RNA sequence: AUUUCGAUAAUGGGGAGCUUGUGAUGCAGGCUGAGAGGGAACCAAAAGUUCCGACCCAAAACCUGAUUUGGAUAAUGCCAACGUAGGGACAGAUAUUUUGAGACAC
Numbered sequence: 001a002u003u004u005c006g007a008u009a010a011u012g013g014g015g016a017g018c019u020u021g022u023g024a025u026g027c028a029g030g031c032u033g034a035g036a037g038g039g040a041a042c043c044a045a046a047a048g049u050u051c052c053g054a055c056c057c058a059a060a061a062c063c064u065g066a067u068u069u070g071g072a073u074a075a076u077g078c079c080a081a082c083g084u085a086g087g088g089a090c091a092g093a094u095a096u097u098u099u100g101a102g103a104c105a106c
Base pairs, nucleotide, nucleotide: 006094008092011058012057013056014055017031018030019029020028021027038052039051040050041049042048062087063086064085065084068081069080070079071078